[Rfam]
Shown here is a 112-nucleotide sequence from Prolixibacter sp. SD074, a member of the family "Group II catalytic intron D1-D4-1". It scores 39 bits against the family's covariance model. The base pairs follow the family's consensus structure.
RNA sequence: GGGAUCCCUUGUCAACCACGGGUUGGUUAGGGCAAGGAGUCAGCAGAGGCCAUAGUAGUUGCCAGUAACGAGCCGAUGAAUGAAGCGGAGGUCUCACAAGACAAUGAAGGGC
Numbered sequence: 001g002g003g004a005u006c007c008c009u010u011g012u013c014a015a016c017c018a019c020g021g022g023u024u025g026g027u028u029a030g031g032g033c034a035a036g037g038a039g040u041c042a043g044c045a046g047a048g049g050c051c052a053u054a055g056u057a058g059u060u061g062c063c064a065g066u067a068a069c070g071a072g073c074c075g076a077u078g079a080a081u082g083a084a085g086c087g088g089a090g091g092u093c094u095c096a097c098a099a100g101a102c103a104a105u106g107a108a109g110g111g112c
Stems, first nucleotide, its partner, number of pairs: 001027001004024001006022003010018002040047002049112003058105004063100001